Nucleotides: 080
Base pairs, nucleotide, nucleotide: 001080002079003078004077005076006075007074
Number, partner (000 for none) and nucleotide at each position: 001080u002079g003078c004077u005076g006075u007074u008000a009000g010000u011000g012000a013000u014000g015000a016000u017000u018000u019000a020000a021000a022000a023000a024000a025000a026000a027000c028000a029000g030000u031000u032000g033000g034000g035000a036000a037000u038000c039000u040000c041000u042000c043000u044000g045000a046000a047000a048000a049000a050000g051000a052000a053000u054000g055000a056000a057000g058000a059000c060000u061000u062000a063000u064000u065000u066000a067000u068000a069000a070000c071000u072000g073000a074007a075006a076005c077004a078003g079002u080001g